This 113-nucleotide RNA sequence from Piliocolobus tephrosceles belongs to the Rfam family "Mitochondrial DNA control region secondary structure A". For this family Rfam cites "Evidence for variable selective pressures at a large secondary structure of the human mitochondrial DNA control region" (Pereira et al., Mol Biol Evol, 2008).
RNA sequence: GUAUUCUUUGCAGCAUGCAUUUAACUACUAUGUAAGUAUUGACCAUCAGCACUAAUAUAUUAAUACUUUUAUGUACUUCGUGCAUGACUACUAGUCCCCAUAGAUAAUAUAUA
Numbered sequence: 001g002u003a004u005u006c007u008u009u010g011c012a013g014c015a016u017g018c019a020u021u022u023a024a025c026u027a028c029u030a031u032g033u034a035a036g037u038a039u040u041g042a043c044c045a046u047c048a049g050c051a052c053u054a055a056u057a058u059a060u061u062a063a064u065a066c067u068u069u070u071a072u073g074u075a076c077u078u079c080g081u082g083c084a085u086g087a088c089u090a091c092u093a094g095u096c097c098c099c100a101u102a103g104a105u106a107a108u109a110u111a112u113a
Stems, first nucleotide, its partner, number of pairs: 005104003009100002012095001016090002021035003026030001036066002040062003071085005
Dot-bracket structure: ....(((.((.(...((...(((..(...)..)))((..(((.................)))..))....(((((.....)))))...))....)...)).))).........